[Rfam]
RNA sequence: AAAUAUUAAAGGCAAACUAAUCGAAAGGUUAGGACGCAAAGCCAAGGGUCUAAGGCUUCCAAUGCUAAGAUAGCCAGGCUGCAGAA
Numbered sequence: 001a002a003a004u005a006u007u008a009a010a011g012g013c014a015a016a017c018u019a020a021u022c023g024a025a026a027g028g029u030u031a032g033g034a035c036g037c038a039a040a041g042c043c044a045a046g047g048g049u050c051u052a053a054g055g056c057u058u059c060c061a062a063u064g065c066u067a068a069g070a071u072a073g074c075c076a077g078g079c080u081g082c083a084g085a086a
Stems, first nucleotide, its partner, number of pairs: 012037002017032006040080004046075002048071003055065002058062001
The record is an 86-nucleotide RNA from Bacillus sp. FJAT-27231, which matches "c-di-GMP-I riboswitch aptamer" in Rfam. Lineage of the source: Bacteria > Bacillati > Bacillota > Bacillaceae > Bacillus. The match comes from Rfam's covariance-model search (82 bits). Rfam describes the family as follows. GEMM was predicted in a large-scale screen for bacterial structured RNA regulatory elements.